Small nucleolar RNA SNORA31: a 128-nucleotide RNA from Atractosteus spatula. By type it is an H/ACA-box small nucleolar RNA. Rfam describes the family as follows. ACA31 (SNORA31) belongs to the H/ACA class of snoRNAs which are thought to guide the sites of modification of uridines to pseudouridines. ACA31 is predicted to guide the pseudouridylation of U3713 in 28S rRNA and U218 in 18S rRNA. This family includes the mouse homologue snoMBI-161.
[Rfam]
RNA sequence: UGGCAUCCACUGAUAGACCUAAAGCAAAAUGUAUUGGCUUUUUGGUUUGCACUCGGAUGCAAUAUCAAAUUCCUUGCACUUUCUGGCUGUCACAUUUGGCAGAUUGGAUUGAAUAAAGGAAGACAUGA
Numbered sequence: 001u002g003g004c005a006u007c008c009a010c011u012g013a014u015a016g017a018c019c020u021a022a023a024g025c026a027a028a029a030u031g032u033a034u035u036g037g038c039u040u041u042u043u044g045g046u047u048u049g050c051a052c053u054c055g056g057a058u059g060c061a062a063u064a065u066c067a068a069a070u071u072c073c074u075u076g077c078a079c080u081u082u083c084u085g086g087c088u089g090u091c092a093c094a095u096u097u098g099g100c101a102g103a104u105u106g107g108a109u110u111g112a113a114u115a116a117a118g119g120a121a122g123a124c125a126u127g128a
Stems, first nucleotide, its partner, number of pairs: 003060006011051002014049006022040004027035002071120005079111001082108004087102005

Overview: The base pairs follow the family's consensus structure, which was predicted with RNAalifold. A search with the family's covariance model found it, with a score of 80 bits.